[Rfam]
RNA: mir-988 microRNA precursor family
RNA sequence: GACGUGUGUGUGUGUGAUUUGUAGCAAAGUGAUUUGCAUUUGAAAUCCCCUUGUUGCAAACCUCACGCUUACGCGUU
Dot-bracket structure: .((((((..(((((.(.((((((((((.(.(((...........))).).)))))))))).).)))))..)))))).